The family of this 229-nucleotide RNA sequence is "HNH endonuclease-associated RNA and ORF (HEARO) RNA". Rfam 15.1 lists 952 matches to the family in 249 species. Pairs were carried over by alignment from the consensus structure, which is taken from published work.

[Rfam]
RNA sequence: GUCAACUACCGACCACUUAAAUGUUAAUGCGUUUUGAAGUGAGGGCUUGUAAAAAGCUUUGGUUGUCUAGCCUUAGUCCUAUGUGGACUCCGUUCAUAGGCUGCAUACCCAAGAAUGAUUCCCUAGUUCUUGGCUCUAUGGUGGCUCUGUAACAGUUCUGAUUGGGAAGGUAGGGCCCUCUUUCGUAAGAAGCUGCCAACACCUACAAACAUUGGCGAAGGGAAACUAC
Numbered sequence: 001g002u003c004a005a006c007u008a009c010c011g012a013c014c015a016c017u018u019a020a021a022u023g024u025u026a027a028u029g030c031g032u033u034u035u036g037a038a039g040u041g042a043g044g045g046c047u048u049g050u051a052a053a054a055a056g057c058u059u060u061g062g063u064u065g066u067c068u069a070g071c072c073u074u075a076g077u078c079c080u081a082u083g084u085g086g087a088c089u090c091c092g093u094u095c096a097u098a099g100g101c102u103g104c105a106u107a108c109c110c111a112a113g114a115a116u117g118a119u120u121c122c123c124u125a126g127u128u129c130u131u132g133g134c135u136c137u138a139u140g141g142u143g144g145c146u147c148u149g150u151a152a153c154a155g156u157u158c159u160g161a162u163u164g165g166g167a168a169g170g171u172a173g174g175g176c177c178c179u180c181u182u183u184c185g186u187a188a189g190a191a192g193c194u195g196c197c198a199a200c201a202c203c204u205a206c207a208a209a210c211a212u213u214g215g216c217g218a219a220g221g222g223a224a225a226c227u228a229c
Stems, first nucleotide, its partner, number of pairs: 001067001003065006010031002012028001015024002032056004070216003075089005092210003097205004105139002109133008119224006141179001143177007153170001156167004
The match comes from Rfam's covariance-model search (89 bits). By type it is a non-coding RNA gene.